mir-33 microRNA precursor family: a 73-nucleotide sequence from Anopheles sinensis. The base pairs follow the family's consensus structure, which was predicted with PFOLD. For this family Rfam cites "Direct sequencing and expression analysis of a large number of miRNAs in Aedes aegypti and a multi-species survey of novel mosquito miRNAs" (Li et al., BMC Genomics, 2009). The match comes from Rfam's covariance-model search (60 bits). The organism belongs to Myzorhynchus, within Eukaryota.

RNA sequence: UGCGGGUGCAUUGUAGUUGCAUUGCACUUUUCGCGUUCGCAACCGGUGCAGUACUUCUGCAGUGCAACCCGAA
Numbered sequence: 001u002g003c004g005g006g007u008g009c010a011u012u013g014u015a016g017u018u019g020c021a022u023u024g025c026a027c028u029u030u031u032c033g034c035g036u037u038c039g040c041a042a043c044c045g046g047u048g049c050a051g052u053a054c055u056u057c058u059g060c061a062g063u064g065c066a067a068c069c070c071g072a073a
Stems, first nucleotide, its partner, number of pairs: 001073001003071002006069001007066010019054001021052007